The family of this 344-nucleotide RNA sequence from Novosphingopyxis sp. YJ-S2-01 is "Alphaproteobacteria transfer-messenger RNA". Pairs were carried over by alignment from the consensus structure, which is taken from published work. Rfam describes the family as follows. Bacterial tmRNA, also known as 10Sa RNA or SsrA, is named for its dual tRNA and mRNA-like properties. Its role is to liberate the mRNA from a stalled ribosome. To accomplish this part of the tmRNA is used as a reading frame that ends in a translation stop signal.
[Rfam]
RNA sequence: UCACUUUUCAUUCAGCUUCAAGCGCCUAUAUGGGUGCUUGCCGGUUUCGAUCGGCUAUGGCGAUAAAGUGUGUUGUGCAAUAGGCGCAGCGGACCCGGGGGCAGUACCCGGCGGCUCCACCAUAAACCGCAGUUUUCUGCGGCUCAUGACGGGGCCGAACCAGGAUCGACGUGUGUUGAAAGACAGCGCUUUCGCCCGGGCUGAGUAACCCGUUAAAGGCUCAAAACUCAUAAGUGCCAACGAUAACGAAGCACUUGCUCUUGCUGCGUAAUUGAUGCCCUAACGGGCUGACAUUACACAAAUAGAACGCGGCCGGGUCGGCCGGGCAACAGAAAGACUACAGC
Number, nucleotide and partner (000 for none) at each position: 001u000002c000003a000004c000005u000006u000007u000008u000009c000010a000011u000012u000013c000014a000015g000016c000017u000018u000019c000020a000021a000022g000023c000024g000025c000026c000027u000028a000029u000030a000031u000032g000033g000034g000035u000036g000037c000038u000039u000040g055041c054042c053043g052044g051045u000046u000047u000048c000049g000050a000051u044052c043053g042054g041055c040056u000057a000058u000059g196060g195061c194062g193063a192064u000065a000066a000067a000068g000069u000070g189071u188072g187073u186074u185075g184076u183077g000078c000079a000080a000081u000082a000083g000084g000085c175086g174087c173088a000089g172090c171091g170092g000093a000094c000095c111096c110097g109098g108099g107100g000101g000102c000103a000104g000105u000106a000107c099108c098109c097110g096111g095112c157113g156114g155115c154116u153117c152118c151119a000120c000121c000122a000123u000124a000125a000126a000127c000128c000129g000130c000131a000132g000133u000134u000135u000136u000137c000138u000139g000140c000141g000142g000143c000144u000145c000146a000147u000148g000149a000150c000151g118152g117153g116154g115155c114156c113157g112158a000159a000160c000161c000162a000163g000164g000165a000166u000167c000168g000169a000170c091171g090172u089173g087174u086175g085176u000177u000178g000179a000180a000181a000182g000183a076184c075185a074186g073187c072188g071189c070190u000191u000192u063193c062194g061195c060196c059197c212198g211199g210200g209201c000202u223203g222204a221205g000206u000207a000208a000209c200210c199211c198212g197213u000214u000215a000216a000217a000218g000219g000220c000221u204222c203223a202224a000225a000226a000227c000228u000229c000230a000231u000232a000233a000234g000235u000236g000237c000238c000239a000240a000241c000242g000243a000244u000245a000246a000247c000248g000249a000250a000251g000252c000253a000254c000255u000256u000257g000258c000259u000260c000261u000262u000263g000264c000265u000266g000267c000268g000269u000270a000271a000272u000273u000274g000275a000276u000277g000278c000279c000280c000281u000282a000283a000284c000285g000286g000287g000288c000289u000290g000291a000292c000293a000294u000295u000296a000297c000298a000299c000300a000301a000302a000303u000304a000305g000306a000307a000308c000309g000310c324311g323312g322313c321314c000315g341316g000317g339318u000319c000320g000321g313322c312323c311324g310325g000326g000327c000328a000329a000330c000331a000332g000333a000334a000335a000336g000337a000338c000339u317340a000341c315342a000343g000344c000